[Rfam]
The record is a 67-nucleotide sequence from Pantherophis guttatus, which matches "mir-34 microRNA precursor family" in Rfam. Clan: mir-34 clan. Human mir-34a was discovered computationally and later experimentally verified. The mature sequence is excised from the 5' arm of the hairpin. Its family is annotated with miRNA-mediated post-transcriptional gene silencing and RISC complex in the Gene Ontology. On this family, see Dostie et al., RNA 2003: "Numerous microRNPs in neuronal cells containing novel microRNAs". The organism belongs to Pantherophis, within Eukaryota.
RNA sequence: UGUCACCAGGCAGUGUAGUUAGCUGAUUGACCAAGGUAACAGUCGCUAACAACACAGCCAAGUGAAA
Numbered sequence: 001u002g003u004c005a006c007c008a009g010g011c012a013g014u015g016u017a018g019u020u021a022g023c024u025g026a027u028u029g030a031c032c033a034a035g036g037u038a039a040c041a042g043u044c045g046c047u048a049a050c051a052a053c054a055c056a057g058c059c060a061a062g063u064g065a066a067a
Stems, first nucleotide, its partner, number of pairs: 003065004009059002013055004018050005024045006